[Rfam]
RNA: tRNA
RNA sequence: GCCCCGGUAGCCCAAUUGGCAGCAGGCGAUGGAUUCAAAACCCAUUCAGUGUCGGUUCGAGUCCGACCCGGGGCA
Numbered sequence: 001g002c003c004c005c006g007g008u009a010g011c012c013c014a015a016u017u018g019g020c021a022g023c024a025g026g027c028g029a030u031g032g033a034u035u036c037a038a039a040a041c042c043c044a045u046u047c048a049g050u051g052u053c054g055g056u057u058c059g060a061g062u063c064c065g066a067c068c069c070g071g072g073g074c075a
Stems, first nucleotide, its partner, number of pairs: 001074007010027003029045004051067005